[Rfam]
RNA: Small nucleolar RNA SNORD99
Organism: Ardeotis kori
RNA sequence: CCUGGUCCGUGAUGACUCCUCCCUGGAGACUGCUGGAUGAGUCCUGCGGAUAUGGGGCUGAGGCCGGGC
Number, nucleotide and partner (000 for none) at each position: 001c068002c067003u066004g065005g064006u000007c000008c000009g000010u000011g000012a000013u000014g000015a000016c000017u000018c000019c000020u000021c000022c000023c000024u000025g000026g000027a000028g000029a000030c000031u000032g000033c000034u000035g000036g000037a000038u000039g000040a000041g000042u000043c000044c000045u000046g000047c000048g000049g000050a000051u000052a000053u000054g000055g000056g000057g000058c000059u000060g000061a000062g000063g000064c005065c004066g003067g002068g001069c000